This 90-nucleotide RNA belongs to the Rfam family "SAM-I/IV (S-adenosyl methionine) riboswitch aptamer". A reference for the family is Weinberg et al. (2008), "The aptamer core of SAM-IV riboswitches mimics the ligand-binding site of SAM-I riboswitches", RNA. It is one of the family's seed sequences. The family's consensus secondary structure is taken from published work.

RNA sequence: GGGUCGCAUCAAGAACGCUAAGGCGUACCAACCGACAGCUCGUUGCACGGUGGUUUAGAAUGCGGGGAUCUUCCCAAACAAACGAGAAAU
Numbered sequence: 001g002g003g004u005c006g007c008a009u010c011a012a013g014a015a016c017g018c019u020a021a022g023g024c025g026u027a028c029c030a031a032c033c034g035a036c037a038g039c040u041c042g043u044u045g046c047a048c049g050g051u052g053g054u055u056u057a058g059a060a061u062g063c064g065g066g067g068a069u070c071u072u073c074c075c076a077a078a079c080a081a082a083c084g085a086g087a088a089a090u
Stems, first nucleotide, its partner, number of pairs: 006063004015026004027054003032050003036045002040086001065075004